[Rfam]
RNA sequence: AAGGUUUCAUAUGCUACAGCAAUGGACUGGUUCAUCGCUGUCUGCUUUGCUUUU
Numbered sequence: 001a002a003g004g005u006u007u008c009a010u011a012u013g014c015u016a017c018a019g020c021a022a023u024g025g026a027c028u029g030g031u032u033c034a035u036c037g038c039u040g041u042c043u044g045c046u047u048u049g050c051u052u053u054u
Stems, first nucleotide, its partner, number of pairs: 001054003008049001011046001013045002016041005022035005